[Rfam]
RNA: Listeria sRNA sbrA
Organism: Listeria booriae
RNA sequence: AUACAUCUAGAUCCAUACCCCUAAACUCCCUAGAUGUCUUGAGUGGUACGUAUAUAAAAAUACGGUAUCACUCUUUUUUA
Numbered sequence: 001a002u003a004c005a006u007c008u009a010g011a012u013c014c015a016u017a018c019c020c021c022u023a024a025a026c027u028c029c030c031u032a033g034a035u036g037u038c039u040u041g042a043g044u045g046g047u048a049c050g051u052a053u054a055u056a057a058a059a060a061u062a063c064g065g066u067a068u069c070a071c072u073c074u075u076u077u078u079u080a
Stems, first nucleotide, its partner, number of pairs: 004036006041073009
Dot-bracket structure: ...((((((.....................))))))....(((((((((...............))))))))).......